[Rfam]
Makes More Granules Regulator RNA (mmgR): a 78-nucleotide RNA sequence from Prosthecodimorpha hirschii. Clan: suhB sRNA clan. A search with the family's covariance model found it, with a score of 66 bits. From the family's description: SuhB later renamed mmgR (makes more granules regulator) was a putative non-coding RNA found multiple times in the Agrobacterium tumefaciens genome and related alpha-proteobacteria. The organism belongs to Prosthecodimorpha, within Bacteria.

RNA sequence: CCUGGCAGCCCUCCUUGGGCGUUUCCUCCCUAGACUUGGGCCGCUGACAGCCGUCAGCGGCCUUUUUUCUUGUGCAGU
Numbered sequence: 001c002c003u004g005g006c007a008g009c010c011c012u013c014c015u016u017g018g019g020c021g022u023u024u025c026c027u028c029c030c031u032a033g034a035c036u037u038g039g040g041c042c043g044c045u046g047a048c049a050g051c052c053g054u055c056a057g058c059g060g061c062c063u064u065u066u067u068u069c070u071u072g073u074g075c076a077g078u
Stems, first nucleotide, its partner, number of pairs: 008020004038063009
Dot-bracket structure: .......((((.....)))).................(((((((((........)))))))))...............